[Rfam]
RNA sequence: ACAUGUAGAUAUCAUCCCUUUCGUAUAUACUUGGAGAUAAGGUCCAGGAGUUUCUACCAGAUCACCGUAAAUGAUCUGACUAUGAAGGUGGAAUGGCUCGAU
Number, nucleotide and partner (000 for none) at each position: 001a000002c000003a000004u000005g000006u000007a000008g000009a000010u000011a000012u000013c000014a000015u000016c000017c000018c088019u087020u086021u085022c084023g083024u082025a081026u000027a000028u000029a000030c048031u047032u046033g045034g044035a043036g000037a000038u000039a000040a000041g000042g000043u035044c034045c033046a032047g031048g030049a000050g000051u000052u000053u000054c000055u000056a000057c000058c078059a077060g076061a075062u074063c073064a072065c000066c000067g000068u000069a000070a000071a000072u064073g063074a062075u061076c060077u059078g058079a000080c000081u025082a024083u023084g022085a021086a020087g019088g018089u000090g000091g000092a000093a000094u000095g000096g000097c000098u000099c000100g000101a000102u000

A member of the RNA family "Purine riboswitch aptamer" from Halalkalibacterium halodurans, 102 nucleotides long.
Pairs were carried over by alignment from the consensus structure, which is taken from published work.
It scores 79 bits against the family's covariance model.